About this RNA:
The record is a 520-nucleotide part of an RNA from Candidatus Zinderia insecticola, which matches "Bacterial large subunit ribosomal RNA" in Rfam. Its family is annotated with structural constituent of ribosome and ribosome in the Gene Ontology. Rfam's curators put it in the seed alignment.
RNA sequence: AUUUAAAUGCACAUGAUGGAUGCUUUGGCAAUUAUAGGCGAUGAAGGACGUGGAAACUUACGAUAAGCUGCGAGUAACUGUUUCAAGUUUUUAUACGCAGAUUUCCGAAUGGGUAAACCUGAUAAAUUUUAUCAUUAUUUAUUUAAUAUAUAUAUAAAUAAAGCUAACGUAGUGAACUGAAACAUCUAAGUAACUAUAGGAAUAGAAAUCAAAUAAGAGAUUCUCUUAGUAGUGGCGAGCGAAAAGGGAAAAGUCAGAAAAAUUAUAGUAUAUUAAAUAAUAGAAUAAUUUGGAAAAUUUAACUAUAAAAGGUGAUAGUCCUGUAUAUAAAAUUUUUUAUACUUUAUUAAUUUUUCAUAAAAUUAAAACGAAACACGUGAAAUUUUGUUUGAAUAAAGGGGGACCAUCCUCUAAGACUAAAUACUAAUAAUUGACCGAUAGUGAACUAGUACCGUGAGGGAAAAGUGAAAAGAACCCCGGGAGGGGAGUGAAAUAGAUCCUGAAAUCAUUUGCAUACAAA
Numbered sequence: 001a002u003u004u005a006a007a008u009g010c011a012c013a014u015g016a017u018g019g020a021u022g023c024u025u026u027g028g029c030a031a032u033u034a035u036a037g038g039c040g041a042u043g044a045a046g047g048a049c050g051u052g053g054a055a056a057c058u059u060a061c062g063a064u065a066a067g068c069u070g071c072g073a074g075u076a077a078c079u080g081u082u083u084c085a086a087g088u089u090u091u092u093a094u095a096c097g098c099a100g101a102u103u104u105c106c107g108a109a110u111g112g113g114u115a116a117a118c119c120u121g122a123u124a125a126a127u128u129u130u131a132u133c134a135u136u137a138u139u140u141a142u143u144u145a146a147u148a149u150a151u152a153u154a155u156a157a158a159u160a161a162a163g164c165u166a167a168c169g170u171a172g173u174g175a176a177c178u179g180a181a182a183c184a185u186c187u188a189a190g191u192a193a194c195u196a197u198a199g200g201a202a203u204a205g206a207a208a209u210c211a212a213a214u215a216a217g218a219g220a221u222u223c224u225c226u227u228a229g230u231a232g233u234g235g236c237g238a239g240c241g242a243a244a245a246g247g248g249a250a251a252a253g254u255c256a257g258a259a260a261a262a263u264u265a266u267a268g269u270a271u272a273u274u275a276a277a278u279a280a281u282a283g284a285a286u287a288a289u290u291u292g293g294a295a296a297a298u299u300u301a302a303c304u305a306u307a308a309a310a311g312g313u314g315a316u317a318g319u320c321c322u323g324u325a326u327a328u329a330a331a332a333u334u335u336u337u338u339a340u341a342c343u344u345u346a347u348u349a350a351u352u353u354u355u356c357a358u359a360a361a362a363u364u365a366a367a368a369c370g371a372a373a374c375a376c377g378u379g380a381a382a383u384u385u386u387g388u389u390u391g392a393a394u395a396a397a398g399g400g401g402g403a404c405c406a407u408c409c410u411c412u413a414a415g416a417c418u419a420a421a422u423a424c425u426a427a428u429a430a431u432u433g434a435c436c437g438a439u440a441g442u443g444a445a446c447u448a449g450u451a452c453c454g455u456g457a458g459g460g461a462a463a464a465g466u467g468a469a470a471a472g473a474a475c476c477c478c479g480g481g482a483g484g485g486g487a488g489u490g491a492a493a494u495a496g497a498u499c500c501u502g503a504a505a506u507c508a509u510u511u512g513c514a515u516a517c518a519a520a
Stems, first nucleotide, its partner, number of pairs: 007515005013509004022500001023465002027436002029433007036425002038164002046106003049062003068100005074094001077088003111120003121133004135161008168199001169197005179186002209218002221421001222249005232240002252418004261352005267343006275335004280328003286301003290297001304308001310322003366390008397412005452459002475486004